[Rfam]
RNA: MIR396 microRNA precursor family
Organism: Cephalotus follicularis
RNA sequence: GGUCAUGCUUUUCCACAGCUUUCUUGAACUUUUUUAUGCUAGCUAUAUCUCUCUAGAUAUAGAACCAAAGAAGCUCAAGAAAGCUGUGGGACAACAUGGCAA
Numbered sequence: 001g002g003u004c005a006u007g008c009u010u011u012u013c014c015a016c017a018g019c020u021u022u023c024u025u026g027a028a029c030u031u032u033u034u035u036a037u038g039c040u041a042g043c044u045a046u047a048u049c050u051c052u053c054u055a056g057a058u059a060u061a062g063a064a065c066c067a068a069a070g071a072a073g074c075u076c077a078a079g080a081a082a083g084c085u086g087u088g089g090g091a092c093a094a095c096a097u098g099g100c101a102a
Stems, first nucleotide, its partner, number of pairs: 003099005013089003017085006024078004029073007